[Rfam]
RNA: Small nucleolar RNA R44/J54/Z268 family
RNA sequence: UCUGCAAGUGACGAUGAAGAAGACAGGGACAUCAGUACUCUUUAUAGAGAAUGAUGACUUGGUCUAUGGGAAUCUCUCUGAUGCUGA
Numbered sequence: 001u002c003u004g005c006a007a008g009u010g011a012c013g014a015u016g017a018a019g020a021a022g023a024c025a026g027g028g029a030c031a032u033c034a035g036u037a038c039u040c041u042u043u044a045u046a047g048a049g050a051a052u053g054a055u056g057a058c059u060u061g062g063u064c065u066a067u068g069g070g071a072a073u074c075u076c077u078c079u080g081a082u083g084c085u086g087a
Stems, first nucleotide, its partner, number of pairs: 002086001004084003